[Rfam]
RNA sequence: AUGCCUUAAACUGAUGAGUAAGGAAAAUAACGAUGCGGGGUGACGCCCGUAUCCUCGUUCAAACUACGAGAAGAAUUUUUGAACGGGUACAGGUCUGCCUGCUGUGGUGACUCGCCUACUUUGCGAGAUGCCUCGUGGGACUAGGACCUUGCCCG
Numbered sequence: 001a002u003g004c005c006u007u008a009a010a011c012u013g014a015u016g017a018g019u020a021a022g023g024a025a026a027a028u029a030a031c032g033a034u035g036c037g038g039g040g041u042g043a044c045g046c047c048c049g050u051a052u053c054c055u056c057g058u059u060c061a062a063a064c065u066a067c068g069a070g071a072a073g074a075a076u077u078u079u080u081g082a083a084c085g086g087g088u089a090c091a092g093g094u095c096u097g098c099c100u101g102c103u104g105u106g107g108u109g110a111c112u113c114g115c116c117u118a119c120u121u122u123g124c125g126a127g128a129u130g131c132c133u134c135g136u137g138g139g140a141c142u143a144g145g146a147c148c149u150u151g152c153c154c155g
Stems, first nucleotide, its partner, number of pairs: 004023005032053008054070005084155005091149006100138001106132004111127005
Background:
The family of this 155-nucleotide sequence from Nothobranchius furzeri is "U12 minor spliceosomal RNA". Its family is annotated with pre-mRNA branch point binding, U12 snRNP and mRNA branch site recognition in the Gene Ontology. NCBI's taxonomy places the organism under Eukaryota, Bilateria, Chordata, Ovalentaria, Nothobranchius. It scores 126 bits against the family's covariance model. The family has 62 seed sequences and 2,106 matches in Rfam 15.1. The pairing is the family consensus, mapped onto this sequence. By type it is a spliceosomal small nuclear RNA.